[Rfam]
RNA sequence: AAAUGUUACAGGUCUUUUAGAAUUGGUCUACCAGGUUUUCUGGUCCUUAACGGAAGACCCCU
Numbered sequence: 001a002a003a004u005g006u007u008a009c010a011g012g013u014c015u016u017u018u019a020g021a022a023u024u025g026g027u028c029u030a031c032c033a034g035g036u037u038u039u040c041u042g043g044u045c046c047u048u049a050a051c052g053g054a055a056g057a058c059c060c061c062u
Stems, first nucleotide, its partner, number of pairs: 034059009044049001

A member of the RNA family "U7 small nuclear RNA" from Callorhinus ursinus, 62 nucleotides long.
The literature on the family includes a 1987 paper in Science by Mowry and Steitz, "Identification of the human U7 snRNP as one of several factors involved in the 3' end maturation of histone premessenger RNA's".
NCBI's taxonomy places the organism under Eukaryota, Metazoa, Deuterostomia, Pinnipedia, Callorhinus.